[Rfam]
RNA sequence: GCCCGGUUAGCUCAGUCGGUAGAGCAGGGGAUUGAAAAUCCCCGUGUCCUUGGUUCGAUUCCGAGACCGGGCA
Numbered sequence: 001g002c003c004c005g006g007u008u009a010g011c012u013c014a015g016u017c018g019g020u021a022g023a024g025c026a027g028g029g030g031a032u033u034g035a036a037a038a039u040c041c042c043c044g045u046g047u048c049c050u051u052g053g054u055u056c057g058a059u060u061c062c063g064a065g066a067c068c069g070g071g072c073a
Stems, first nucleotide, its partner, number of pairs: 001072007010025004027043005049065005

The family of this 73-nucleotide RNA sequence from Ketobacter alkanivorans is "tRNA". Rfam's curators write: Transfer RNA (tRNA) molecules are approximately 80 nucleotides in length.